RNA sequence: ACAGGUAAGUCGCCGGACCGGAGUUCGCGCCUCAGGGCGCGGGCGUCCAGGACCGGCUUGGGGUGAAGCCGCGCAAGCGGCCGGGCAACUCCAGCCCGAACCCGACAGCUCACCUCGCAGGCGUCGGAGAGGAAAAUU
Numbered sequence: 001a002c003a004g005g006u007a008a009g010u011c012g013c014c015g016g017a018c019c020g021g022a023g024u025u026c027g028c029g030c031c032u033c034a035g036g037g038c039g040c041g042g043g044c045g046u047c048c049a050g051g052a053c054c055g056g057c058u059u060g061g062g063g064u065g066a067a068g069c070c071g072c073g074c075a076a077g078c079g080g081c082c083g084g085g086c087a088a089c090u091c092c093a094g095c096c097c098g099a100a101c102c103c104g105a106c107a108g109c110u111c112a113c114c115u116c117g118c119a120g121g122c123g124u125c126g127g128a129g130a131g132g133a134a135a136a137u138u
Base pairs, nucleotide, nucleotide: 011123012122013121014120018036019035037118038117039116041114042113048060049059061103062102063101069080070079071078072077083097084096085095086094